[Rfam]
RNA sequence: GGUUCGCGUCGCGACUGGCGCCGGGUGGGAUCGACCACCGGGGAGCGACGAGGUACGCCGAUCACGGAAUCGCCCGCCUGGGUCCCGCGG
Numbered sequence: 001g002g003u004u005c006g007c008g009u010c011g012c013g014a015c016u017g018g019c020g021c022c023g024g025g026u027g028g029g030a031u032c033g034a035c036c037a038c039c040g041g042g043g044a045g046c047g048a049c050g051a052g053g054u055a056c057g058c059c060g061a062u063c064a065c066g067g068a069a070u071c072g073c074c075c076g077c078c079u080g081g082g083u084c085c086c087g088c089g090g
Stems, first nucleotide, its partner, number of pairs: 004053002007050006015042002017078004025038004067085001069083003
RNA: ZMP/ZTP riboswitch aptamer (pfl RNA motif)
Organism: Serinibacter arcticus